[Rfam]
A member of the RNA family "Group II catalytic intron D1-D4-1" from Shouchella lonarensis, 74 nucleotides long.
Taxonomically the source falls in Shouchella (Bacteria, Bacillati, Caryophanales, Bacillaceae).
RNA sequence: CAAUCACGCCAGCGAUGGUGUGAUGAAUUGUAAGAAGUCAGCAGAAGCCAUAGUAGCUCUACGGAGUGAAGGGC
Number, nucleotide and partner (000 for none) at each position: 001c025002a024003a000004u023005c022006a021007c020008g019009c018010c017011a016012g000013c000014g000015a000016u011017g010018g009019u008020g007021u006022g005023a004024u002025g001026a000027a000028u000029u000030g000031u000032a000033a000034g000035a000036a000037g000038u045039c044040a000041g000042c000043a000044g039045a038046a000047g074048c073049c072050a000051u000052a000053g000054u000055a000056g067057c066058u065059c064060u000061a000062c000063g000064g059065a058066g057067u056068g000069a000070a000071g000072g049073g048074c047
The literature on the family includes a 2001 paper in Trends Genet by Bonen and Vogel, "The ins and outs of group II introns". Gene Ontology term of the family: Group II intron splicing.